[Rfam]
RNA: raiA RNA
RNA sequence: CUCAACCGGGUCUGUGGUUGCCCGGGGAUCUUCCCCGGUAGUCGACGCCAGCCGCGGGCGAAACGACCCACGUAAGGCGACCUUUGGUCGCCGAGCAUGGCGCGGUUUAGAUGUAAGUCCUGCCGUGGCACCGGGCACGGGGUCGCGAGAGGGCGGGAGUGCGGUCGCCACGGACGUCCAGGCGACCGGGCGAGCGCUCCGGCAGGCGAGUGUGGGGGCAAAGACCAGGUCAGCCGGGCGAG
Numbered sequence: 001c002u003c004a005a006c007c008g009g010g011u012c013u014g015u016g017g018u019u020g021c022c023c024g025g026g027g028a029u030c031u032u033c034c035c036c037g038g039u040a041g042u043c044g045a046c047g048c049c050a051g052c053c054g055c056g057g058g059c060g061a062a063a064c065g066a067c068c069c070a071c072g073u074a075a076g077g078c079g080a081c082c083u084u085u086g087g088u089c090g091c092c093g094a095g096c097a098u099g100g101c102g103c104g105g106u107u108u109a110g111a112u113g114u115a116a117g118u119c120c121u122g123c124c125g126u127g128g129c130a131c132c133g134g135g136c137a138c139g140g141g142g143u144c145g146c147g148a149g150a151g152g153g154c155g156g157g158a159g160u161g162c163g164g165u166c167g168c169c170a171c172g173g174a175c176g177u178c179c180a181g182g183c184g185a186c187c188g189g190g191c192g193a194g195c196g197c198u199c200c201g202g203c204a205g206g207c208g209a210g211u212g213u214g215g216g217g218g219c220a221a222a223g224a225c226c227a228g229g230u231c232a233g234c235c236g237g238g239c240g241a242g
Base pairs, nucleotide, nucleotide: 001242002241003240006237007236008235009234012233013232014231015227016226017225018224019223045213046212047211048058050107051106052105053104054103055102056101067100068099076091079088081086098220119206120205121204122203123202124147125146126145127144128143151199152198153197154196159191160190163187164186165185166184167183168182169181